[Rfam]
RNA sequence: CUUCUGUUAUGAUGAUUUAUGAAAAUAAAUUCACAUGUCAGACUUCAGAGAUUUUAAAAAAUCUAUGAGAAGAUAAUUCAUGUCCUCAGAGCAAAAA
Numbered sequence: 001c002u003u004c005u006g007u008u009a010u011g012a013u014g015a016u017u018u019a020u021g022a023a024a025a026u027a028a029a030u031u032c033a034c035a036u037g038u039c040a041g042a043c044u045u046c047a048g049a050g051a052u053u054u055u056a057a058a059a060a061a062u063c064u065a066u067g068a069g070a071a072g073a074u075a076a077u078u079c080a081u082g083u084c085c086u087c088a089g090a091g092c093a094a095a096a097a
Stems, first nucleotide, its partner, number of pairs: 002096002005093003050063004

This 97-nucleotide RNA sequence from Corchorus capsularis belongs to the Rfam family "Small nucleolar RNA R64/Z200 family". On this family, see Marker et al., Curr Biol 2002: "Experimental RNomics: identification of 140 candidates for small non-messenger RNAs in the plant Arabidopsis thaliana". Rfam 15.1 lists 748 matches to the family in 228 species. A search with the family's covariance model found it, with a score of 82 bits.